RNA sequence: ACUAUCCUUUUCUUGGGGUUACACUACUGUCCAAAGAGCAUGUAGUGAGGGCAGUACUGCCAAUGUCUACACAAGACACCUGCAUCAACUAGAGCUUUGCUUUAGCUUGGUGCAAUUUUUGGAAAA
Numbered sequence: 001a002c003u004a005u006c007c008u009u010u011u012c013u014u015g016g017g018g019u020u021a022c023a024c025u026a027c028u029g030u031c032c033a034a035a036g037a038g039c040a041u042g043u044a045g046u047g048a049g050g051g052c053a054g055u056a057c058u059g060c061c062a063a064u065g066u067c068u069a070c071a072c073a074a075g076a077c078a079c080c081u082g083c084a085u086c087a088a089c090u091a092g093a094g095c096u097u098u099g100c101u102u103u104a105g106c107u108u109g110g111u112g113c114a115a116u117u118u119u120u121g122g123a124a125a126a
Stems, first nucleotide, its partner, number of pairs: 006018004022059002026055007038046002082113006090104006
Dot-bracket structure: .....((((.....))))...((..(((((((.....((.....))..)))))))..))......................((((((..((((((...))))))...)))))).............
Rfam assigns this 126-nucleotide RNA sequence from Mandrillus leucophaeus to the family "U4atac minor spliceosomal RNA". The source organism's lineage runs through Eukaryota, Simiiformes, Catarrhini, Cercopithecoidea and Mandrillus. Rfam describes the family as follows. U4atac is an essential component of the minor U12-type spliceosome complex which is required for removal of the rarer class of eukaryotic introns (AT-AC, U12-type). The family's RNA type in Rfam is spliceosomal small nuclear RNA. For this family Rfam cites "Evolution of spliceosomal snRNA genes in metazoan animals" (Marz et al., J Mol Evol, 2008).